[Rfam]
RNA sequence: CUGACAAAAGCGCAUGGGUCGAUAUCGGAAUAGAUAGCCCGGUCCGCCUCGAAGCACCUUCAAGGAAAGUGCGAACUGGCGAGCGCGUUAAUGUCAG
Numbered sequence: 001c002u003g004a005c006a007a008a009a010g011c012g013c014a015u016g017g018g019u020c021g022a023u024a025u026c027g028g029a030a031u032a033g034a035u036a037g038c039c040c041g042g043u044c045c046g047c048c049u050c051g052a053a054g055c056a057c058c059u060u061c062a063a064g065g066a067a068a069g070u071g072c073g074a075a076c077u078g079g080c081g082a083g084c085g086c087g088u089u090a091a092u093g094u095c096a097g
Stems, first nucleotide, its partner, number of pairs: 001097005009089005015041004023036004045081004054072004059067001
L4-Archaeoglobi ribosomal protein leades: a 97-nucleotide RNA.
The sequence is in the family's curated seed alignment.